RNA sequence: CCAUUCAUCAUUUUUGUGAUUUUUGCAAUUAUGUGCUGAAAGAAAUUGCAUAGUCACAAAAGUGAUGGAAGA
Numbered sequence: 001c002c003a004u005u006c007a008u009c010a011u012u013u014u015u016g017u018g019a020u021u022u023u024u025g026c027a028a029u030u031a032u033g034u035g036c037u038g039a040a041a042g043a044a045a046u047u048g049c050a051u052a053g054u055c056a057c058a059a060a061a062g063u064g065a066u067g068g069a070a071g072a
Stems, first nucleotide, its partner, number of pairs: 002071001004069003008065013024050007
RNA: mir-153 microRNA precursor family